[Rfam]
RNA sequence: GAGGAAGAACCCGAAAAUCCUUAAAAAAGUAGGGA
Dot-bracket structure: .((((....[[[.....))))..........]]].
Description:
DUF805b RNA: a 35-nucleotide sequence. Rfam classes the family as a cis-regulatory element. The family's consensus secondary structure is taken from published work. The sequence is in the family's curated seed alignment.